[Rfam]
RNA sequence: AUAACAAUUUAUCUUUACCCUCGUAUAUCCAUGGGAAUAUGGCCCAUAAGUUUCUACCCAAUAACCGUAAAUUAUUGGACUAUGAGGGAAAGUCAAUAUGUU
Number, nucleotide and partner (000 for none) at each position: 001a000002u000003a000004a000005c000006a000007a000008u000009u000010u000011a000012u000013c000014u000015u000016u000017a000018c088019c087020c086021u085022c084023g083024u082025a081026u000027a000028u000029c000030c000031a047032u046033g045034g044035g043036a000037a000038u000039a000040u000041g000042g000043c035044c034045c033046a032047u031048a000049a000050g000051u000052u000053u000054c000055u000056a000057c000058c078059c077060a076061a075062u074063a073064a072065c000066c000067g000068u000069a000070a000071a000072u064073u063074a062075u061076u060077g059078g058079a000080c000081u025082a024083u023084g022085a021086g020087g019088g018089a000090a000091a000092g000093u000094c000095a000096a000097u000098a000099u000100g000101u000102u000
RNA: Purine riboswitch aptamer
Organism: Bacillus sp. AFS073361